[Rfam]
RNA sequence: GUUCAUCUGCGGCGUUGGUGACUGCCAAUAAUGUUUUUUGACUAUGAUUUGUUCAAAAGGGAACUGAUCGUCGGGCGGCAGUAUACCGGGCUUGUACCCGGAAACUUUAAGUUACGGCACUUUGGUACCCACCUGGUUUUUACCAGGUCAAAAACUGAGGUAAGACGGCGUUGCGGGGAGCCU
Numbered sequence: 001g002u003u004c005a006u007c008u009g010c011g012g013c014g015u016u017g018g019u020g021a022c023u024g025c026c027a028a029u030a031a032u033g034u035u036u037u038u039u040g041a042c043u044a045u046g047a048u049u050u051g052u053u054c055a056a057a058a059g060g061g062a063a064c065u066g067a068u069c070g071u072c073g074g075g076c077g078g079c080a081g082u083a084u085a086c087c088g089g090g091c092u093u094g095u096a097c098c099c100g101g102a103a104a105c106u107u108u109a110a111g112u113u114a115c116g117g118c119a120c121u122u123u124g125g126u127a128c129c130c131a132c133c134u135g136g137u138u139u140u141u142a143c144c145a146g147g148u149c150a151a152a153a154a155c156u157g158a159g160g161u162a163a164g165a166c167g168g169c170g171u172u173g174c175g176g177g178g179a180g181c182c183u
Base pairs, nucleotide, nucleotide: 003180006177007176008175009174010173011172012171013170014169015168018166019165035154036153037152039150040149041148042146043145059130060129061128063126064125065124066123067122070120072116073115074113075112076111081105082104086101087100088099089098090097

A member of the RNA family "6S / SsrS RNA" from Stenomitos frigidus, 183 nucleotides long. The organism belongs to Stenomitos frigidus, within Bacteria. From the family's description: E. coli 6S RNA was the first non coding RNA to be sequenced, but its function was unknown until recently. It consists of 184 nucleotides that fold into an extended hairpin structure with a large single-stranded internal bulge. The 6S RNA specifically associates with RNA polymerase holoenzyme containing the sigma70 specificity factor. This interaction represses expression from a sigma70-dependent promoter during stationary phase. 6S RNA homologs have recently been identified in most bacterial genomes. Many Gram-positive species have two copies of 6S RNA. In Bacillus subtilis, both copies appear to interact with RNA polymerase holoenzyme containing the housekeeping sigma factor and be expressed during different stages of growth. In many proteobacteria, 6S RNA may be processed from a transcript encoding homologs of the E. coli YgfA protein which is a putative 5-formyltetrahydrofolate cycloligase activity. A search with the family's covariance model found it, with a score of 88 bits. The family has 150 seed sequences and 5,006 matches in Rfam 15.1.